[Rfam]
RNA: 7SK RNA
Organism: Urocitellus parryii
RNA sequence: GGAUGUGAGGGCGAUCUGGCUGCGACAUCUGUCACCCCAUUGAUCGCCAGGGUUGAUUCGGCUGAUCUGGCUGGCUAGGCGGGUGUCCUCUUCCUCCCUCACCGCUCCGUGUGCGUCCCUCCCGAAGCUGCGCGCUCGGUCGAAGAGGACGACCUUCCCCGAUAGAGGAGAACCGUUCUUCGGUCAAGGGUAUACGAGUAGCUGCGCUCCCCUGCUAGAACCUCCAAACAAGCUCUCAAAAAAUACUUUAUUUCUUAAGUAAACAGUUCAUUAUGUCUAGAACAUAAAUUGUUCAAAGGCUUUUCCAACAAAU
Dot-bracket structure: (((.(((((((.((...((....((((((((((.(((((..(((((((...........))).)))))))..))...)))))))))).)).))..)))))))...))).......((((((((((.((.....))))))(((....(((......))).)))..)))).)).............................(((....(..(.((........(.......((.............))..).....)).)..)..)))....................(((.((.............))..)))
Numbered sequence: 001g002g003a004u005g006u007g008a009g010g011g012c013g014a015u016c017u018g019g020c021u022g023c024g025a026c027a028u029c030u031g032u033c034a035c036c037c038c039a040u041u042g043a044u045c046g047c048c049a050g051g052g053u054u055g056a057u058u059c060g061g062c063u064g065a066u067c068u069g070g071c072u073g074g075c076u077a078g079g080c081g082g083g084u085g086u087c088c089u090c091u092u093c094c095u096c097c098c099u100c101a102c103c104g105c106u107c108c109g110u111g112u113g114c115g116u117c118c119c120u121c122c123c124g125a126a127g128c129u130g131c132g133c134g135c136u137c138g139g140u141c142g143a144a145g146a147g148g149a150c151g152a153c154c155u156u157c158c159c160c161g162a163u164a165g166a167g168g169a170g171a172a173c174c175g176u177u178c179u180u181c182g183g184u185c186a187a188g189g190g191u192a193u194a195c196g197a198g199u200a201g202c203u204g205c206g207c208u209c210c211c212c213u214g215c216u217a218g219a220a221c222c223u224c225c226a227a228a229c230a231a232g233c234u235c236u237c238a239a240a241a242a243a244u245a246c247u248u249u250a251u252u253u254c255u256u257a258a259g260u261a262a263a264c265a266g267u268u269c270a271u272u273a274u275g276u277c278u279a280g281a282a283c284a285u286a287a288a289u290u291g292u293u294c295a296a297a298g299g300c301u302u303u304u305c306c307a308a309c310a311a312a313u
Stems, first nucleotide, its partner, number of pairs: 001108003005102007013093002018090002024087010035074002037070003042067004046062003116171002118168004122139004127135002140162003147158003201267003208262001211259001213257002223250001231247002288313003292308002